[Rfam]
RNA: FMN riboswitch aptamer (RFN element)
Organism: Polymorphospora rubra
RNA sequence: ACGCGCUGGCGGGACUCGGUGUAAUUCCGAACCGGCGGUGAUCCGGGGUUCGCGCCCCGGUCAGCCCGCGACCCGGUCGUAACCAACGGCCGGUUGACCUGGUGACGAUUCCAGGGCCGACGGUUGGGGGCAGGUCGCUCGGCGGCCCGCGCCCAGACAGUCCGGAUGGGAGACAGCGCGC
Numbered sequence: 001a002c003g004c005g006c007u008g009g010c011g012g013g014a015c016u017c018g019g020u021g022u023a024a025u026u027c028c029g030a031a032c033c034g035g036c037g038g039u040g041a042u043c044c045g046g047g048g049u050u051c052g053c054g055c056c057c058c059g060g061u062c063a064g065c066c067c068g069c070g071a072c073c074c075g076g077u078c079g080u081a082a083c084c085a086a087c088g089g090c091c092g093g094u095u096g097a098c099c100u101g102g103u104g105a106c107g108a109u110u111c112c113a114g115g116g117c118c119g120a121c122g123g124u125u126g127g128g129g130g131c132a133g134g135u136c137g138c139u140c141g142g143c144g145g146c147c148c149g150c151g152c153c154c155a156g157a158c159a160g161u162c163c164g165g166a167u168g169g170g171a172g173a174c175a176g177c178g179c180g181c
Base pairs, nucleotide, nucleotide: 003179004178005177006176007175008174010172017029018028019027033119034118035069036068037067038066064117065116073093074092098115099114100113101112102111121164122163123162